[Rfam]
Nucleotides: 103
Stems, first nucleotide, its partner, number of pairs: 001103002004100003
Number, partner (000 for none) and nucleotide at each position: 001103a002102a003000c004100u005099g006098g007000a008000g009000u010000g011000a012000u013000g014000a015000a016000a017000a018000c019000u020000a021000u022000g023000c024000c025000u026000u027000a028000g029000g030000u031000g032000g033000g034000u035000g036000c037000u038000g039000a040000a041000g042000a043000c044000u045000g046000u047000u048000u049000u050000g051000g052000u053000u054000u055000u056000c057000a058000u059000c060000a061000c062000a063000c064000u065000c066000a067000c068000c069000g070000a071000u072000g073000c074000a075000a076000g077000g078000g079000g080000u081000u082000g083000u084000c085000a086000u087000a088000g089000u090000u091000a092000c093000a094000c095000u096000g097000a098006c099005c100004a101000u102002u103001u
A member of the RNA family "Small nucleolar RNA SNORD46" from Varanus komodoensis, 103 nucleotides long. Gene Ontology terms of the family: RNA processing and nucleolus. The organism belongs to Varanus, within Eukaryota. A reference for the family is Chen et al. (2003), "The high diversity of snoRNAs in plants: identification and comparative study of 120 snoRNA genes from Oryza sativa", Nucleic Acids Res. The match comes from Rfam's covariance-model search (61 bits). U40 is a C/D box small nucleolar RNA, also known as snoZ153 in plants. The human sequence has also been annotated in the sequence databases as U46. U40 is encoded in intron 2 of the ribosomal protein S8 gene in human, and is hypothesised to guide methylation of 2'-O-ribose residues on 28S ribosomal RNA. This family represents vertebrate U40. It is annotated as a C/D-box small nucleolar RNA.